[Rfam]
RNA sequence: AAAUUCCUGGGAUGUUCGAUACCCUGCUAUUUUGAACCUACAUUUUAUUUUAGGGUUCCCUAUAUUGCAGAUUGGAUGUCAGGCCGCCGUUUGCAGCGGAAGGCAGAAGAGAUGCUGCGGUUACCCACCUAGCUCUGGCUAGGCGUCAAAAUUGCAGGAAACGGCAUUUUGGGUUUUUG
Numbered sequence: 001a002a003a004u005u006c007c008u009g010g011g012a013u014g015u016u017c018g019a020u021a022c023c024c025u026g027c028u029a030u031u032u033u034g035a036a037c038c039u040a041c042a043u044u045u046u047a048u049u050u051u052a053g054g055g056u057u058c059c060c061u062a063u064a065u066u067g068c069a070g071a072u073u074g075g076a077u078g079u080c081a082g083g084c085c086g087c088c089g090u091u092u093g094c095a096g097c098g099g100a101a102g103g104c105a106g107a108a109g110a111g112a113u114g115c116u117g118c119g120g121u122u123a124c125c126c127a128c129c130u131a132g133c134u135c136u137g138g139c140u141a142g143g144c145g146u147c148a149a150a151a152u153u154g155c156a157g158g159a160a161a162c163g164g165c166a167u168u169u170u171g172g173g174u175u176u177u178u179g
Stems, first nucleotide, its partner, number of pairs: 002177002006173010017163002032150001033148003037143002053126003059120002064116001067115003072110002079103002084099004